[Rfam]
Rfam assigns this 91-nucleotide RNA sequence to the family "Small nucleolar RNA Z43".
RNA sequence: UGACUAUGAUGAGAAGUUAAUUAUAGGUCUCGUUCGUCGUAUUGGCUUAGAAUUUUCUAUGCCUUGCCGAUCAUCCUUACCAACUGAGUCA
Numbered sequence: 001u002g003a004c005u006a007u008g009a010u011g012a013g014a015a016g017u018u019a020a021u022u023a024u025a026g027g028u029c030u031c032g033u034u035c036g037u038c039g040u041a042u043u044g045g046c047u048u049a050g051a052a053u054u055u056u057c058u059a060u061g062c063c064u065u066g067c068c069g070a071u072c073a074u075c076c077u078u079a080c081c082a083a084c085u086g087a088g089u090c091a
Stems, first nucleotide, its partner, number of pairs: 001091004050065002052060001
Dot-bracket structure: ((((.............................................(((.......)...))......................))))
Rfam 15.1 lists 859 matches to the family in 240 species. On this family, see Chen et al., Nucleic Acids Res 2003: "The high diversity of snoRNAs in plants: identification and comparative study of 120 snoRNA genes from Oryza sativa". The family's consensus secondary structure was predicted with PFOLD.